[Rfam]
RNA sequence: GCUGGGACCAGUUGGGACCAGUCAUGGGCAAAAUUAAUGUUUUUUUGUCCAGUGUUGCAGUCUUCCCAGAGGAAAGUGGAGGUCUCUGUCUGCUUUAGGACAGCCUACUAAAUCAGAUCGUUCACCUCCUUACACA
Numbered sequence: 001g002c003u004g005g006g007a008c009c010a011g012u013u014g015g016g017a018c019c020a021g022u023c024a025u026g027g028g029c030a031a032a033a034u035u036a037a038u039g040u041u042u043u044u045u046u047g048u049c050c051a052g053u054g055u056u057g058c059a060g061u062c063u064u065c066c067c068a069g070a071g072g073a074a075a076g077u078g079g080a081g082g083u084c085u086c087u088g089u090c091u092g093c094u095u096u097a098g099g100a101c102a103g104c105c106u107a108c109u110a111a112a113u114c115a116g117a118u119c120g121u122u123c124a125c126c127u128c129c130u131u132a133c134a135c136a
Base pairs, nucleotide, nucleotide: 004066005065006064009060011058012057025051026050027049028048029047030046031045078129079128080127081126082125086120088118089117090116092114094112095111096110097109098108
Small Cajal body specific RNA 3: a 136-nucleotide sequence from Catharus ustulatus.
Taxonomically the source falls in Catharus (Eukaryota, Bilateria, Archelosauria, Neoaves).
Rfam describes the family as follows. scaRNAs are a specific class of small nuclear RNAs which localise to the Cajal bodies and guide the modification of RNA polymerase II transcribed spliceosomal RNAs U1, U2, U4, U5 and U12.
Rfam links the family to the GO terms nucleolus, RNA processing and Cajal body.
The literature on the family includes a 2002 paper in EMBO J by Darzacq et al., "Cajal body-specific small nuclear RNAs: a novel class of 2'-O-methylation and pseudouridylation guide RNAs".
Clan: SCARNA3 clan.